Rfam assigns this 52-nucleotide RNA from Roseivivax sediminis to the family "serC leader". It scores 65 bits against the family's covariance model. This family is a putative regulatory RNA structure that is found upstream of the serC-serA operon in some alpha-proteobacteria. The final stem of the structure overlaps the ribosome binding site of the serC reading frame. For this family Rfam cites "Evidence for a second class of S-adenosylmethionine riboswitches and other regulatory RNA motifs in alpha-proteobacteria" (Corbino et al., Genome Biol, 2005). It is annotated as a cis-regulatory leader. Lineage of the source: Bacteria > Pseudomonadati > Alphaproteobacteria > Roseobacteraceae > Roseivivax.
RNA sequence: UCUUGGGACACCCCUCCCCAACGAGGGGCGACUAUCUGGAAGGUUAGACAUC
Numbered sequence: 001u002c003u004u005g006g007g008a009c010a011c012c013c014c015u016c017c018c019c020a021a022c023g024a025g026g027g028g029c030g031a032c033u034a035u036c037u038g039g040a041a042g043g044u045u046a047g048a049c050a051u052c
Stems, first nucleotide, its partner, number of pairs: 011028006032047003036043002